The family of this 144-nucleotide RNA from Brassica cretica is "small nucleolar RNA snoR134". Rfam links the family to the GO terms RNA processing and nucleolus. By type it is an H/ACA-box small nucleolar RNA. A reference for the family is Chen and Wu (2009), "Mining small RNA sequencing data: a new approach to identify small nucleolar RNAs in Arabidopsis", Nucleic Acids Res. The family's consensus secondary structure was predicted with RNAalifold. The match comes from Rfam's covariance-model search (96 bits).

RNA sequence: UUGCAGGAGCCUCCCGGGCUAAUCUGAAUAUAAAAACUUGUGGAAAUAAGCCCCAAACCUCCUGCUAGAUUGUGUGUUGCCAUUUGUGUUGCAGGUUUGCCUUGAUUCUCUAGUCUUUCCUGUGUCAAAAACAUGGUUGAAUUU
Numbered sequence: 001u002u003g004c005a006g007g008a009g010c011c012u013c014c015c016g017g018g019c020u021a022a023u024c025u026g027a028a029u030a031u032a033a034a035a036a037c038u039u040g041u042g043g044a045a046a047u048a049a050g051c052c053c054c055a056a057a058c059c060u061c062c063u064g065c066u067a068g069a070u071u072g073u074g075u076g077u078u079g080c081c082a083u084u085u086g087u088g089u090u091g092c093a094g095g096u097u098u099g100c101c102u103u104g105a106u107u108c109u110c111u112a113g114u115c116u117u118u119c120c121u122g123u124g125u126c127a128a129a130a131a132c133a134u135g136g137u138u139g140a141a142u143u144u
Stems, first nucleotide, its partner, number of pairs: 003065007016053005021047001023044003079137005085131001087127002090124006099115001101113001